[Rfam]
RNA sequence: UUGUCGACGGCAGUCCGUCGGCCUUCAGUUGCAGGCAGACGUCGGCGAAAUCCGGCGGCUGAAGCCCUGCGAAAAGUCAUGCAGAUCGUGUGACGAAGCAAAUCUGCAGGCCGUAACGAAA
Numbered sequence: 001u002u003g004u005c006g007a008c009g010g011c012a013g014u015c016c017g018u019c020g021g022c023c024u025u026c027a028g029u030u031g032c033a034g035g036c037a038g039a040c041g042u043c044g045g046c047g048a049a050a051u052c053c054g055g056c057g058g059c060u061g062a063a064g065c066c067c068u069g070c071g072a073a074a075a076g077u078c079a080u081g082c083a084g085a086u087c088g089u090g091u092g093a094c095g096a097a098g099c100a101a102a103u104c105u106g107c108a109g110g111c112c113g114u115a116a117c118g119a120a121a
Stems, first nucleotide, its partner, number of pairs: 031070005036061003040057002045052001077093006098114002
Dot-bracket structure: ..............................((((((((.((...(......)...)).)))....)))))......((((((.....))))))....((.............)).......